[Rfam]
RNA: Listeria sRNA rli28
RNA sequence: UACAGUACAAUAUACGCAUAAGGUUAGUAAAGUUUAAGGCGGUUAGCAAUCUCUUAUUUUGGAGAUGGUGCCUAUGAGUGUAAAAACUUGGCAACGCAUUUCUAAGAAAGGAUAUUGCAAAAUGUCUGUUUAUGAGGCACUAAGCUUAAUGAUUGCUUUUGCAACGUUAAUCGUGCUAGUGAACAAUAAUAA
Dot-bracket structure: .........................................(((.((.............(((((((.............................))))))).....................(..((.(.....).))..).................)))))....((.(..(....)..).)).....
Numbered sequence: 001u002a003c004a005g006u007a008c009a010a011u012a013u014a015c016g017c018a019u020a021a022g023g024u025u026a027g028u029a030a031a032g033u034u035u036a037a038g039g040c041g042g043u044u045a046g047c048a049a050u051c052u053c054u055u056a057u058u059u060u061g062g063a064g065a066u067g068g069u070g071c072c073u074a075u076g077a078g079u080g081u082a083a084a085a086a087c088u089u090g091g092c093a094a095c096g097c098a099u100u101u102c103u104a105a106g107a108a109a110g111g112a113u114a115u116u117g118c119a120a121a122a123u124g125u126c127u128g129u130u131u132a133u134g135a136g137g138c139a140c141u142a143a144g145c146u147u148a149a150u151g152a153u154u155g156c157u158u159u160u161g162c163a164a165c166g167u168u169a170a171u172c173g174u175g176c177u178a179g180u181g182a183a184c185a186a187u188a189a190u191a192a
Stems, first nucleotide, its partner, number of pairs: 042165003046162002061103007125143001128140002131137001170187002173184001176181001